[Rfam]
RNA sequence: CUCUGGAGAGAGGCGCAGGACUGCGUCCGCCGAAGGGAUAGCGAUCUCAGGCGAAGGGACAGAG
Numbered sequence: 001c002u003c004u005g006g007a008g009a010g011a012g013g014c015g016c017a018g019g020a021c022u023g024c025g026u027c028c029g030c031c032g033a034a035g036g037g038a039u040a041g042c043g044a045u046c047u048c049a050g051g052c053g054a055a056g057g058g059a060c061a062g063a064g
Base pairs, nucleotide, nucleotide: 001064002063003062004061005060012027013026014025015024029052030051031050032048033047036046037045